[Rfam]
Nucleotides: 141
Base pairs, nucleotide, nucleotide: 003058004057005056006055007054008053009052011050017045018044019043020042021041022040023038024037025036026035027034069135070134071133073131074130082120083119084118085117086116088113089112090111
Number, partner (000 for none) and nucleotide at each position: 001000c002000u003058c004057c005056c006055u007054c008053a009052g010000c011050c012000u013000u014000a015000c016000u017045c018044c019043g020042g021041g022040g023038g024037c025036u026035u027034c028000u029000g030000c031000u032000g033000u034027g035026g036025a037024g038023u039000g040022c041021c042020c043019u044018g045017g046000c047000a048000u049000u050011g051000c052009c053008u054007g055006g056005g057004g058003g059000g060000a061000c062000a063000c064000g065000a066000g067000g068000a069135a070134g071133c072000g073131c074130a075000g076000a077000u078000c079000c080000c081000u082120c083119c084118c085117c086116a087000g088113g089112g090111a091000u092000c093000c094000u095000u096000a097000g098000c099000u100000u101000a102000a103000a104000g105000c106000c107000g108000u109000g110000c111090u112089c113088c114000u115000g116086u117085g118084g119083g120082g121000c122000c123000u124000a125000c126000c127000a128000a129000c130074u131073g132000c133071g134070c135069u136000g137000a138000c139000a140000c141000a